[Rfam]
RNA sequence: CGAGUUGGCCGGGCGGCCGCGUCGGCGCCGGCCGGUCCGGCGUCGCCGAGGAAAGUCCGGGCUCCACAGGGCAGGGCGGUGGGUAACACCCACCCGGGGUGACCCGCGGGACAGUGCCACAGAAAACAGACCGCCGGUGCCGGUCCCGGCGCCGGUAAGGGUGAAACGGUGCGGUAAGAGCGCACCAGCGCCCAGGGUGACCUGGGCGGCUCGGUAAACCCCGCCCGGAGCAAGGUCAGAAGGCCCGUGGCCGUCACAGGUCGCGGACCGCGCAGGCGUUCGAGGGCUGCCCGCCCGAGCCUGCGGGUGGACCGCUGGAGGCUGCCGGCAACGGCAGCCCGAGAGAGAUGGUCGCCGCCGGCGAGCCGUGAGGCGAGCCGGUACAGGACCCGGCUUAUAGGCCACCUCGUCCG
Dot-bracket structure: ((((.(((((((((((((.((.((((((((.......)))))))).))....[[[.[[[[[((((...[[[[.((((((((((.....)))))(((((....)))).)((...(((((............(((((((((((......)))))))))..)).......((((((.......)))))).(((((((((....)))))))).)..)))..)))))))))))))...((((..................................((((((......((((.]]]]))))..)))))).....))))......((((((((....))))))))..........)))))))................................]]]]]]]].).))))).))))....
Rfam assigns this 413-nucleotide sequence from Frankia casuarinae to the family "Bacterial RNase P class A". It is annotated as a ribozyme. Rfam's curators put it in the seed alignment. NCBI's taxonomy places the organism under Bacteria, Actinomycetota, Actinomycetes, Frankiaceae, Frankia.